[Rfam]
RNA: Iron response element II
Organism: Linnemannia gamsii
RNA sequence: GCUUCAUCGUGGACAGUGCCCCACAUGAUGU
Numbered sequence: 001g002c003u004u005c006a007u008c009g010u011g012g013a014c015a016g017u018g019c020c021c022c023a024c025a026u027g028a029u030g031u
Base pairs, nucleotide, nucleotide: 001031002030004028005027006026007025009024010023011022012021014018